[Rfam]
RNA sequence: AAGAGCCUCGAGCCGAUAAAGACUUAGUUGGAAAGGGGAGAUUGACUCAAGAACAAA
Numbered sequence: 001a002a003g004a005g006c007c008u009c010g011a012g013c014c015g016a017u018a019a020a021g022a023c024u025u026a027g028u029u030g031g032a033a034a035g036g037g038g039a040g041a042u043u044g045a046c047u048c049a050a051g052a053a054c055a056a057a
Base pairs, nucleotide, nucleotide: 007051008050010048011047012046014044015043016042017041